[Rfam]
RNA sequence: UUUCCAGGUUCCCCCAUACGGCUCCCGCUGAGCCCUCAGUGUUUUCCUGACAUGAUCAGGCCCCACUGUGGGCGGCGCUGCUUGCCUGGAGCCUGAGAGGACUGUGAACCGUGUGGGGCGGAGUGGAGGGAGGGGACCGGGUG
Numbered sequence: 001u002u003u004c005c006a007g008g009u010u011c012c013c014c015c016a017u018a019c020g021g022c023u024c025c026c027g028c029u030g031a032g033c034c035c036u037c038a039g040u041g042u043u044u045u046c047c048u049g050a051c052a053u054g055a056u057c058a059g060g061c062c063c064c065a066c067u068g069u070g071g072g073c074g075g076c077g078c079u080g081c082u083u084g085c086c087u088g089g090a091g092c093c094u095g096a097g098a099g100g101a102c103u104g105u106g107a108a109c110c111g112u113g114u115g116g117g118g119c120g121g122a123g124u125g126g127a128g129g130g131a132g133g134g135g136a137c138c139g140g141g142u143g
Stems, first nucleotide, its partner, number of pairs: 001143001003141001005140001007138003011135004022128004056096006063089002068085007
Shown here is a 143-nucleotide RNA sequence from Chinchilla lanigera, a member of the family "small Cajal body-specific RNA 17". The base pairs follow the family's consensus structure, which is taken from published work. The literature on the family includes a 2002 paper in EMBO J by Darzacq et al., "Cajal body-specific small nuclear RNAs: a novel class of 2'-O-methylation and pseudouridylation guide RNAs". About the family: scaRNAs are a specific class of small nuclear RNAs which localise to the Cajal bodies and guide the modification of RNA polymerase II transcribed spliceosomal RNAs U1, U2, U4, U5 and U12. The complete human U12-22/U4-8 scaRNA is composed of two tandem C/D box domains (termed U12-22 and U4-8).